[Rfam]
RNA sequence: UGUGGUGUGAGGAAAGUUGAAGCAGUUGGAGUCGAAACACGGAAAGACGCCCGACUGCUUCUUCUU
Dot-bracket structure: ..............(...(((((..((((.(((............)))..))))..))))))....
Rfam assigns this 66-nucleotide RNA sequence from Aphanothece hegewaldii to the family "Cyano-1 RNA". The family's RNA type in Rfam is small RNA. The base pairs follow the family's consensus structure, which is taken from published work.